[Rfam]
RNA sequence: CGGGGAAAGAAGACCCUGUUGAGCUUGACUCUAGUCCGACUUUGUGAAAUGGCCUGGGAGGUGUAGUAUAAGUGGGAGCUUUACGGCGUCAGUGAAAUACCACUACUCUCAUGGUCAUUUUACUUAUUCCAUUAGGUAGAGCCCUCUCUUUGAGAGGUUAUGGCUUUAAAGCAGCAUUGCUGCUGAUCUAUGUGGAAGACAUAGUCAGGUGGGGAGUUUGGCUGGGGCGGCACAUCUGUUAAACGAUAACGCAGGUGUCCUAGGGUAAGCUCAAAGAGAACAGAAAUCUCUUGUAGACCAAAAGGGGAAAAGCUUACUUGAUUUUGAUUUUCAGUACGAAUACAAACUGUGAAAGCAUGGCCUAUCGAUCCUUUUGCUUUAAAAGUUUUAAGCUAGAGGUGUCAGAAAAGUUACCACAGGGAUAACUGGCUUGUGGCAGCCAAGCGUUCAUAGCGACGUUGCUUUUUGAUUCUUCGAUGUCGGCUCUUCCUAUCAUUGUGAAGCAGAAUUCACCAAGUGUCGGAUUGUUCACCCGCUAAUAGGGAACGUGAGCUGGGUUUAGACCGUCGUGAGACAGGUUAGUUUUACCCUA
Numbered sequence: 001c002g003g004g005g006a007a008a009g010a011a012g013a014c015c016c017u018g019u020u021g022a023g024c025u026u027g028a029c030u031c032u033a034g035u036c037c038g039a040c041u042u043u044g045u046g047a048a049a050u051g052g053c054c055u056g057g058g059a060g061g062u063g064u065a066g067u068a069u070a071a072g073u074g075g076g077a078g079c080u081u082u083a084c085g086g087c088g089u090c091a092g093u094g095a096a097a098u099a100c101c102a103c104u105a106c107u108c109u110c111a112u113g114g115u116c117a118u119u120u121u122a123c124u125u126a127u128u129c130c131a132u133u134a135g136g137u138a139g140a141g142c143c144c145u146c147u148c149u150u151u152g153a154g155a156g157g158u159u160a161u162g163g164c165u166u167u168a169a170a171g172c173a174g175c176a177u178u179g180c181u182g183c184u185g186a187u188c189u190a191u192g193u194g195g196a197a198g199a200c201a202u203a204g205u206c207a208g209g210u211g212g213g214g215a216g217u218u219u220g221g222c223u224g225g226g227g228c229g230g231c232a233c234a235u236c237u238g239u240u241a242a243a244c245g246a247u248a249a250c251g252c253a254g255g256u257g258u259c260c261u262a263g264g265g266u267a268a269g270c271u272c273a274a275a276g277a278g279a280a281c282a283g284a285a286a287u288c289u290c291u292u293g294u295a296g297a298c299c300a301a302a303a304g305g306g307g308a309a310a311a312g313c314u315u316a317c318u319u320g321a322u323u324u325u326g327a328u329u330u331u332c333a334g335u336a337c338g339a340a341u342a343c344a345a346a347c348u349g350u351g352a353a354a355g356c357a358u359g360g361c362c363u364a365u366c367g368a369u370c371c372u373u374u375u376g377c378u379u380u381a382a383a384a385g386u387u388u389u390a391a392g393c394u395a396g397a398g399g400u401g402u403c404a405g406a407a408a409a410g411u412u413a414c415c416a417c418a419g420g421g422a423u424a425a426c427u428g429g430c431u432u433g434u435g436g437c438a439g440c441c442a443a444g445c446g447u448u449c450a451u452a453g454c455g456a457c458g459u460u461g462c463u464u465u466u467u468g469a470u471u472c473u474u475c476g477a478u479g480u481c482g483g484c485u486c487u488u489c490c491u492a493u494c495a496u497u498g499u500g501a502a503g504c505a506g507a508a509u510u511c512a513c514c515a516a517g518u519g520u521c522g523g524a525u526u527g528u529u530c531a532c533c534c535g536c537u538a539a540u541a542g543g544g545a546a547c548g549u550g551a552g553c554u555g556g557g558u559u560u561a562g563a564c565c566g567u568c569g570u571g572a573g574a575c576a577g578g579u580u581a582g583u584u585u586u587a588c589c590c591u592a
Stems, first nucleotide, its partner, number of pairs: 003591003007586002015420004020416002022412005028217004035209002038206004044123010055111006071104005078087002127197005137190004145157005170184005220233001221231003234256006259360002265317006271297002274292006298307002322346003327341004348357003371398004376393001378392004429470001431468001433467001435463006444454002481556001482554004486548001487545005494519002498513005521535003525531001562580004566575003
Record summary:
A member of the RNA family "Eukaryotic large subunit ribosomal RNA" from Sterkiella histriomuscorum, 592 nucleotides of a longer RNA. Rfam links the family to the GO terms ribosome and structural constituent of ribosome. Pairs were carried over by alignment from the consensus structure, which is taken from published work. The source organism's lineage runs through Eukaryota, Sar, Ciliophora, Stichotrichia and Sterkiella. Rfam's curators put it in the seed alignment.